[Rfam]
Rfam assigns this 143-nucleotide RNA sequence from Drosophila gunungcola to the family "Hsp90 cis-regulatory element". The family has 6 seed sequences and 11 matches in Rfam 15.1. It scores 118 bits against the family's covariance model. Rfam links the family to the GO terms regulation of translation and response to temperature stimulus. About the family: The hsp90 gene product is involved in the Drosophila heat shock response and translation of the hsp90 mRNA is very inefficient under normal growth temperatures. The organism belongs to elegans subgroup (in: flies), within Eukaryota.
RNA sequence: AGUCUUGAAAAAAUUUCGUGCGGUGUGUGUCUACACGACAGCGUCUGAAAAAGUUUUGUGAAUUUCUUAUUCUGCACAAAGCAAAGUGAAAAUUUAUUUUACCUUUAUUCUGUGAAUAGAACGAAUAACAUACAAACAAGGUG
Numbered sequence: 001a002g003u004c005u006u007g008a009a010a011a012a013a014u015u016u017c018g019u020g021c022g023g024u025g026u027g028u029g030u031c032u033a034c035a036c037g038a039c040a041g042c043g044u045c046u047g048a049a050a051a052a053g054u055u056u057u058g059u060g061a062a063u064u065u066c067u068u069a070u071u072c073u074g075c076a077c078a079a080a081g082c083a084a085a086g087u088g089a090a091a092a093u094u095u096a097u098u099u100u101a102c103c104u105u106u107a108u109u110c111u112g113u114g115a116a117u118a119g120a121a122c123g124a125a126u127a128a129c130a131u132a133c134a135a136a137c138a139a140g141g142u143g
Stems, first nucleotide, its partner, number of pairs: 002142006014051001015049004020044003024040003029034001057132004064125003070121005077114002080111002083106004087101005
Dot-bracket structure: .((((((......(((((.(((.(((..(....)...))).))).)))).).....((((...(((...(((((..((.((.(((((((((.....))))).))))...)).))..))))).)))...))))....)))))).